[Rfam]
The record is an 84-nucleotide sequence from Zootermopsis nevadensis, which matches "Mammalian CPEB3 ribozyme" in Rfam. The family's consensus secondary structure is taken from published work. Rfam describes the family as follows. The mammalian CPEB3 ribozyme is a self cleaving RNA located in the second intron of the CPEB3 gene which belongs to a family of genes regulating messenger RNA polyadenylation. Lineage of the source: Eukaryota > Eumetazoa > Pterygota > Termopsini > Zootermopsis.
RNA sequence: UUUCGAAAAAAGGGGGUCACAGCAGGAGCGUUAAAUGUCACGAUCUCGGUCAAACCCAUGUACUGAUGGGUUGUGAAUCCUGCU
Numbered sequence: 001u002u003u004c005g006a007a008a009a010a011a012g013g014g015g016g017u018c019a020c021a022g023c024a025g026g027a028g029c030g031u032u033a034a035a036u037g038u039c040a041c042g043a044u045c046u047c048g049g050u051c052a053a054a055c056c057c058a059u060g061u062a063c064u065g066a067u068g069g070g071u072u073g074u075g076a077a078u079c080c081u082g083c084u
Stems, first nucleotide, its partner, number of pairs: 013047006021084007028041001030039001051073003055069002
Gene Ontology term of the family: RNA nuclease activity.